[Rfam]
RNA sequence: CACCUAGUGGGAAGCGCAGACCUUGUAGACCUUUACUGCAACCUGUUGUUGUGAUUUUAUUAAAAGUGCUUAGAGUAGGUAGGAGCGUCGAAGUUAAACUCUUGGGUUUAAUGGAGCAAAAGUGUAACACUACCCAUUUUUGAUAAAACCACUCACUUUAUGAGGACAGCAAUUGGCAGGCAGUUUGGCUGGGGCGGCGCCCGGUCGAAAAAGUAUCGAUCGGGCCCAAAGACAAGCUCAUCCAGGUCGGAAAUCUGGAGUAGAGUGUAAGGGCAAAAGCUUGUCUGACUGUUUUCUGAACAGCAAAGAAAGCAGGAGUGAAAGCUGGGCUUAGCGAACUUCCAUAGCUUUUUAAUGGGGCUUGGAAACGACAGAAAAGGUACCUCAAGGAUAAUGGGCUCGUCGCGCCUGAUAGUCCACAUUGACGGCGCGGUUUGGUGCGUCGCUGUCGGCUCUCCCUAUCCCGGUUGUGCAGCAGCAACCAAGGGUGUCGGAGUUCACGCAUUAAAAGGGAUCGUUAGCUGGGUUAAGAACGUCGCGAGACAGUUUGUAUGAUAUCUACUAGGUGUGUU
Numbered sequence: 001c002a003c004c005u006a007g008u009g010g011g012a013a014g015c016g017c018a019g020a021c022c023u024u025g026u027a028g029a030c031c032u033u034u035a036c037u038g039c040a041a042c043c044u045g046u047u048g049u050u051g052u053g054a055u056u057u058u059a060u061u062a063a064a065a066g067u068g069c070u071u072a073g074a075g076u077a078g079g080u081a082g083g084a085g086c087g088u089c090g091a092a093g094u095u096a097a098a099c100u101c102u103u104g105g106g107u108u109u110a111a112u113g114g115a116g117c118a119a120a121a122g123u124g125u126a127a128c129a130c131u132a133c134c135c136a137u138u139u140u141u142g143a144u145a146a147a148a149c150c151a152c153u154c155a156c157u158u159u160a161u162g163a164g165g166a167c168a169g170c171a172a173u174u175g176g177c178a179g180g181c182a183g184u185u186u187g188g189c190u191g192g193g194g195c196g197g198c199g200c201c202c203g204g205u206c207g208a209a210a211a212a213g214u215a216u217c218g219a220u221c222g223g224g225c226c227c228a229a230a231g232a233c234a235a236g237c238u239c240a241u242c243c244a245g246g247u248c249g250g251a252a253a254u255c256u257g258g259a260g261u262a263g264a265g266u267g268u269a270a271g272g273g274c275a276a277a278a279g280c281u282u283g284u285c286u287g288a289c290u291g292u293u294u295u296c297u298g299a300a301c302a303g304c305a306a307a308g309a310a311a312g313c314a315g316g317a318g319u320g321a322a323a324g325c326u327g328g329g330c331u332u333a334g335c336g337a338a339c340u341u342c343c344a345u346a347g348c349u350u351u352u353u354a355a356u357g358g359g360g361c362u363u364g365g366a367a368a369c370g371a372c373a374g375a376a377a378a379g380g381u382a383c384c385u386c387a388a389g390g391a392u393a394a395u396g397g398g399c400u401c402g403u404c405g406c407g408c409c410u411g412a413u414a415g416u417c418c419a420c421a422u423u424g425a426c427g428g429c430g431c432g433g434u435u436u437g438g439u440g441c442g443u444c445g446c447u448g449u450c451g452g453c454u455c456u457c458c459c460u461a462u463c464c465c466g467g468u469u470g471u472g473c474a475g476c477a478g479c480a481a482c483c484a485a486g487g488g489u490g491u492c493g494g495a496g497u498u499c500a501c502g503c504a505u506u507a508a509a510a511g512g513g514a515u516c517g518u519u520a521g522c523u524g525g526g527u528u529a530a531g532a533a534c535g536u537c538g539c540g541a542g543a544c545a546g547u548u549u550g551u552a553u554g555a556u557a558u559c560u561a562c563u564a565g566g567u568g569u570g571u572u
Stems, first nucleotide, its partner, number of pairs: 001568008010560003015554001022389004027385002029381005035184004042176002045173004051152003055148014078134005085117002096109005156164003187200001188198003201223006226329002232284006238264002241259006265274002289315009317326001319324001340367005346362005398439003402436001403433007414422001450525001451523004455517001456514005463488002467482005492502002531549004535544003

About this RNA: A member of the RNA family "Archaeal large subunit ribosomal RNA" from Candidatus Psychracetigena formicireducens, 572 nucleotides of a longer RNA. Pairs were carried over by alignment from the consensus structure, which is taken from published work.